[Rfam]
RNA sequence: GAAUCAAAAAUGCACGGAAACAAUGCCACAGUUGGCUUUACUGUCAUCUAACAGUUGCUAAUUGCCAGUAUUUCAUUUUAAUGAAAUACCAGUUUCCCAGAAUAAAAUAACGUGACUGGAUUUAGGAAGUUUGCUAUCUGGGCUGCCCUUUCAGGGCUUUGAUAGAUUGUGAAUGUCGAAGAAAGGCUACAUCU
Numbered sequence: 001g002a003a004u005c006a007a008a009a010a011u012g013c014a015c016g017g018a019a020a021c022a023a024u025g026c027c028a029c030a031g032u033u034g035g036c037u038u039u040a041c042u043g044u045c046a047u048c049u050a051a052c053a054g055u056u057g058c059u060a061a062u063u064g065c066c067a068g069u070a071u072u073u074c075a076u077u078u079u080a081a082u083g084a085a086a087u088a089c090c091a092g093u094u095u096c097c098c099a100g101a102a103u104a105a106a107a108u109a110a111c112g113u114g115a116c117u118g119g120a121u122u123u124a125g126g127a128a129g130u131u132u133g134c135u136a137u138c139u140g141g142g143c144u145g146c147c148c149u150u151u152c153a154g155g156g157c158u159u160u161g162a163u164a165g166a167u168u169g170u171g172a173a174u175g176u177c178g179a180a181g182a183a184a185g186g187c188u189a190c191a192u193c194u
Stems, first nucleotide, its partner, number of pairs: 016074004030063007041054004108183001111181001129174004134169001136167004142160001145157005
Background:
Shown here is a 194-nucleotide RNA sequence from Lachancea mirantina, a member of the family "Small nucleolar RNA snR34". The family's consensus secondary structure was predicted with WAR. Rfam links the family to the GO terms nucleolus and RNA processing.